[Rfam]
RNA: cspA thermoregulator
RNA sequence: ACUGGUUUGGAAGUACAGACCUACUUUAUGAAAGACAAGUUUAAAGCAGUUCCUGUUUGGUGAUAUCGAAGAUACCCCUCUCAUUGUGAAUUUCUUCUAAUUAGUAACCAUAAGUAAAAAAGAAAAACAAACCGAAAAAUGCCAUAUGGCGACUUAAAAAAAUUAUAGGAAAUUUAAUAUGUCUAAUACAAUGACUGGUACAGUAAAAUGGUUCAACGAAUCUAAAGGCUUCGGUUUCAUCUCUCCAAAAGAUGGUAGCAAAGAUGUUUUCGUUCAUUUUUCUGCAAUUCAGAGCGAUAGCUUCAAAACUUUGAACGAAGGUCAAGAAGUUAGCUUUACUAUCGAAAACGGUGCAAAAGGUCCUUCUGCUGCAAACGUAAUCGCACUGUAAGAUAAAUUAGUUAAUACUAAUUUUAAUCUUUAAAGUGAAAAAUAUUUAAAACCUCGCCUUGGCGGGGUUUUUUCA
Numbered sequence: 001a002c003u004g005g006u007u008u009g010g011a012a013g014u015a016c017a018g019a020c021c022u023a024c025u026u027u028a029u030g031a032a033a034g035a036c037a038a039g040u041u042u043a044a045a046g047c048a049g050u051u052c053c054u055g056u057u058u059g060g061u062g063a064u065a066u067c068g069a070a071g072a073u074a075c076c077c078c079u080c081u082c083a084u085u086g087u088g089a090a091u092u093u094c095u096u097c098u099a100a101u102u103a104g105u106a107a108c109c110a111u112a113a114g115u116a117a118a119a120a121a122g123a124a125a126a127a128c129a130a131a132c133c134g135a136a137a138a139a140u141g142c143c144a145u146a147u148g149g150c151g152a153c154u155u156a157a158a159a160a161a162a163u164u165a166u167a168g169g170a171a172a173u174u175u176a177a178u179a180u181g182u183c184u185a186a187u188a189c190a191a192u193g194a195c196u197g198g199u200a201c202a203g204u205a206a207a208a209u210g211g212u213u214c215a216a217c218g219a220a221u222c223u224a225a226a227g228g229c230u231u232c233g234g235u236u237u238c239a240u241c242u243c244u245c246c247a248a249a250a251g252a253u254g255g256u257a258g259c260a261a262a263g264a265u266g267u268u269u270u271c272g273u274u275c276a277u278u279u280u281u282c283u284g285c286a287a288u289u290c291a292g293a294g295c296g297a298u299a300g301c302u303u304c305a306a307a308a309c310u311u312u313g314a315a316c317g318a319a320g321g322u323c324a325a326g327a328a329g330u331u332a333g334c335u336u337u338a339c340u341a342u343c344g345a346a347a348a349c350g351g352u353g354c355a356a357a358a359g360g361u362c363c364u365u366c367u368g369c370u371g372c373a374a375a376c377g378u379a380a381u382c383g384c385a386c387u388g389u390a391a392g393a394u395a396a397a398u399u400a401g402u403u404a405a406u407a408c409u410a411a412u413u414u415u416a417a418u419c420u421u422u423a424a425a426g427u428g429a430a431a432a433a434u435a436u437u438u439a440a441a442a443c444c445u446c447g448c449c450u451u452g453g454c455g456g457g458g459u460u461u462u463u464u465c466a
Stems, first nucleotide, its partner, number of pairs: 004021006029247002033244003046237001049236001051234002053227002062222003067218002071214002074212003080181001083178004093169003098165003105125001141150003183198003187194001251343005263271002274332001276330004281326001283324002285321001288315006296309001298307001350363002353361002366388001368386001370383002439462010